[Rfam]
RNA sequence: AAUAAAGGAGCAAUAACCAAUUUCUUGUUCUAUCCAGAGUAUUGGCAUUGCUCCUUUAU
Numbered sequence: 001a002a003u004a005a006a007g008g009a010g011c012a013a014u015a016a017c018c019a020a021u022u023u024c025u026u027g028u029u030c031u032a033u034c035c036a037g038a039g040u041a042u043u044g045g046c047a048u049u050g051c052u053c054c055u056u057u058a059u
Base pairs, nucleotide, nucleotide: 004057005056006055007054008053009052010051011050012049013048014047019042022039023038024037025036027034

The record is a 59-nucleotide RNA from Corchorus capsularis, which matches "Plastid-psbA-4 3UTR RNA" in Rfam. The family's RNA type in Rfam is cis-regulatory element. A reference for the family is Richter et al. (2023), "Retrograde signaling in plants: A critical review focusing on the GUN pathway and beyond", Plant Commun. NCBI's taxonomy places the organism under Eukaryota, Viridiplantae, Tracheophyta, Magnoliopsida, Corchorus. Plastid psbA-4 is a non-coding RNA (ncRNA) present in plastids. It was identified in inverted repeat sequences in the 3 prime untranslate region (3UTR) of photosystem II quinone-binding protein (psbA). Its Rfam clan is "Plastid-psbA 3UTR RNA clan".